[Rfam]
RNA sequence: UUAUUAAGGGCGUAUGGGGGAUGCCUAGGCUCUCAGAGGCGAAGAAGGACGUGACAAGCUGCGAAAAGCUGUGGGGAUUGGCACAUACGAAUUGAUCCGCAGAUAUCCGAAUGGGGCAACCUGCUAUGUUGAAGGCAUAGUAUCUACUUUGUGUAGAGGCUAACCUGGUGAACUGAAACAUCUAAGUAACCAGAGGAAGAGAAAACAAUAGUGAUUUUGUGAGUAGCGGCGAGCGAAAGUGAAAUAGCCCAAACCAUGUAUGUUUUGGCAUAUAUGGGGUUGUAGGACUACAAUAUUUGAUUAUGCUGUAAUUAGAAUUAGCUGGAAAGCUAAGCCGAAGAAGGUGAAAGUCCUGUAUAGGUAAAGGUAUAAUUAAUAGUAGUAUCCUGAGUAGUGCGGGGCACGAGAAACCUUGCAUGAAUCAAGCGGGACCAUCCGCUAAGGCUAAAUACUACUGAGAGACCGAUAGUGAACUAGUACCGUGAGGGAAAGGUGAAAAGAACCUUGAAUAAAGGAGUGAAAUAGAUCCUGAAACCAUACGCUUACAAG
Dot-bracket structure: .......((((((((((.....(((..(((((((((((((......((((((........))).....(((((((..(((.......))).....)))))))...)))....(((....)))(((((((.....))))))).(((((.....))))).))...((((((.....((....))......))))).).........((....))..((((((.....((.....))....)))))..((((....(((((((..........)))))))......(((.((((......((((((((((.(..(((...(((((......)))))..(...).(((.......)))...)))...).))))))))))...))))...))).....((((((((.........))))))))......(((((......)))))..))))..)..)).))))))).))...............((....))....)).........((((.....)))).............).....)))))))))).....
Numbered sequence: 001u002u003a004u005u006a007a008g009g010g011c012g013u014a015u016g017g018g019g020g021a022u023g024c025c026u027a028g029g030c031u032c033u034c035a036g037a038g039g040c041g042a043a044g045a046a047g048g049a050c051g052u053g054a055c056a057a058g059c060u061g062c063g064a065a066a067a068g069c070u071g072u073g074g075g076g077a078u079u080g081g082c083a084c085a086u087a088c089g090a091a092u093u094g095a096u097c098c099g100c101a102g103a104u105a106u107c108c109g110a111a112u113g114g115g116g117c118a119a120c121c122u123g124c125u126a127u128g129u130u131g132a133a134g135g136c137a138u139a140g141u142a143u144c145u146a147c148u149u150u151g152u153g154u155a156g157a158g159g160c161u162a163a164c165c166u167g168g169u170g171a172a173c174u175g176a177a178a179c180a181u182c183u184a185a186g187u188a189a190c191c192a193g194a195g196g197a198a199g200a201g202a203a204a205a206c207a208a209u210a211g212u213g214a215u216u217u218u219g220u221g222a223g224u225a226g227c228g229g230c231g232a233g234c235g236a237a238a239g240u241g242a243a244a245u246a247g248c249c250c251a252a253a254c255c256a257u258g259u260a261u262g263u264u265u266u267g268g269c270a271u272a273u274a275u276g277g278g279g280u281u282g283u284a285g286g287a288c289u290a291c292a293a294u295a296u297u298u299g300a301u302u303a304u305g306c307u308g309u310a311a312u313u314a315g316a317a318u319u320a321g322c323u324g325g326a327a328a329g330c331u332a333a334g335c336c337g338a339a340g341a342a343g344g345u346g347a348a349a350g351u352c353c354u355g356u357a358u359a360g361g362u363a364a365a366g367g368u369a370u371a372a373u374u375a376a377u378a379g380u381a382g383u384a385u386c387c388u389g390a391g392u393a394g395u396g397c398g399g400g401g402c403a404c405g406a407g408a409a410a411c412c413u414u415g416c417a418u419g420a421a422u423c424a425a426g427c428g429g430g431a432c433c434a435u436c437c438g439c440u441a442a443g444g445c446u447a448a449a450u451a452c453u454a455c456u457g458a459g460a461g462a463c464c465g466a467u468a469g470u471g472a473a474c475u476a477g478u479a480c481c482g483u484g485a486g487g488g489a490a491a492g493g494u495g496a497a498a499a500g501a502a503c504c505u506u507g508a509a510u511a512a513a514g515g516a517g518u519g520a521a522a523u524a525g526a527u528c529c530u531g532a533a534a535c536c537a538u539a540c541g542c543u544u545a546c547a548a549g
Stems, first nucleotide, its partner, number of pairs: 008544010023529001024493002028464002030461007037453002039160002047108003050063003069102007078090003113122003123141007143157005164195001165193005175182002205212002215449001216243005226234002246446004254277007284388003288382004298375010309364001312360003318333005336340001342354003394418008425440005480487002503515004
Shown here is a 549-nucleotide part of an RNA from Psychroflexus salarius, a member of the family "Bacterial large subunit ribosomal RNA".
The literature on the family includes a 2002 paper in BMC Bioinformatics by Cannone et al., "The comparative RNA web (CRW) site: an online database of comparative sequence and structure information for ribosomal, intron, and other RNAs".
The base pairs follow the family's consensus structure, which is taken from published work.
The match comes from Rfam's covariance-model search (2730 bits).
The source organism's lineage runs through Bacteria, Pseudomonadati, Flavobacteriia, Flavobacteriales and Psychroflexus.